[Rfam]
RNA sequence: UUGCAAUGUAGCAUGCCCGUAUGUGGAAUUACUCUGAUGUUUAUAUGUUAUUUUAUUGCUUUGGGAACGGGGUGUUACAAUA
Numbered sequence: 001u002u003g004c005a006a007u008g009u010a011g012c013a014u015g016c017c018c019g020u021a022u023g024u025g026g027a028a029u030u031a032c033u034c035u036g037a038u039g040u041u042u043a044u045a046u047g048u049u050a051u052u053u054u055a056u057u058g059c060u061u062u063g064g065g066a067a068c069g070g071g072g073u074g075u076u077a078c079a080a081u082a
Base pairs, nucleotide, nucleotide: 005081007079008078009077010076011075012074013073014072016071017070018069019068020067
Shown here is an 82-nucleotide sequence from Medicago truncatula, a member of the family "MIR2617 microRNA precursor family". It scores 53 bits against the family's covariance model. The family's consensus secondary structure was predicted with RNAalifold.